[Rfam]
RNA: DUF805 RNA
Organism: Niastella vici
RNA sequence: GACAGGUGGAGCAGCAACCACUUUAAAAACGGGCGGAACCGAAAAGCCAGACGAGUAGGAUCAAA
Numbered sequence: 001g002a003c004a005g006g007u008g009g010a011g012c013a014g015c016a017a018c019c020a021c022u023u024u025a026a027a028a029a030c031g032g033g034c035g036g037a038a039c040c041g042a043a044a045a046g047c048c049a050g051a052c053g054a055g056u057a058g059g060a061u062c063a064a065a
Stems, first nucleotide, its partner, number of pairs: 006021004032048003039059002